The family of this 63-nucleotide RNA sequence from Trypanosoma congolense is "Trypanosomatid snoRNA TB8Cs3H1". For this family Rfam cites "A genome-wide analysis of C/D and H/ACA-like small nucleolar RNAs in Trypanosoma brucei reveals a trypanosome-specific pattern of rRNA modification" (Liang et al., RNA, 2005). The family's consensus secondary structure was predicted with WAR. Gene Ontology terms of the family: RNA processing and nucleolus. By type it is an H/ACA-box small nucleolar RNA.
RNA sequence: AUGAGGUUCGAAUACGCUUCACGGUUUCUGUGCGUCCACGCGUGGGAAACGCCUCAAAGAUGC
Numbered sequence: 001a002u003g004a005g006g007u008u009c010g011a012a013u014a015c016g017c018u019u020c021a022c023g024g025u026u027u028c029u030g031u032g033c034g035u036c037c038a039c040g041c042g043u044g045g046g047a048a049a050c051g052c053c054u055c056a057a058a059g060a061u062g063c
Base pairs, nucleotide, nucleotide: 002056003055004054005053006052007051014043015042016041017040022034023033